Rfam assigns this 143-nucleotide RNA sequence from Gossypium australe to the family "small nucleolar RNA snoR137".
On this family, see Chen and Wu, Nucleic Acids Res 2009: "Mining small RNA sequencing data: a new approach to identify small nucleolar RNAs in Arabidopsis".
Rfam classes the family as an H/ACA-box small nucleolar RNA.
The organism belongs to Gossypium, within Eukaryota.
A search with the family's covariance model found it, with a score of 58 bits.
The base pairs follow the family's consensus structure, which was predicted with RNAalifold.
RNA sequence: GUUGCUUCGUUUGAUAAUGGGGUAGCUGGUUUCAAUAGUUGGUUACUCUUAAUGAGAAGCAUAGAAUUAUGGGAAUUCGCCAGUUCUAAACAGCAUGAUGUUGUUUAUCUAUUGCAUUGUGUUACCUGUCUGCUGGUAUAUUU
Numbered sequence: 001g002u003u004g005c006u007u008c009g010u011u012u013g014a015u016a017a018u019g020g021g022g023u024a025g026c027u028g029g030u031u032u033c034a035a036u037a038g039u040u041g042g043u044u045a046c047u048c049u050u051a052a053u054g055a056g057a058a059g060c061a062u063a064g065a066a067u068u069a070u071g072g073g074a075a076u077u078c079g080c081c082a083g084u085u086c087u088a089a090a091c092a093g094c095a096u097g098a099u100g101u102u103g104u105u106u107a108u109c110u111a112u113u114g115c116a117u118u119g120u121g122u123u124a125c126c127u128g129u130c131u132g133c134u135g136g137u138a139u140a141u142u143u
Stems, first nucleotide, its partner, number of pairs: 003061006018051005023045004079137006092123003096119005
Dot-bracket structure: ..((((((.........(((((((((...............)))).)))))....)))))).................((((((.......(((.(((((..............))))).)))........))))))......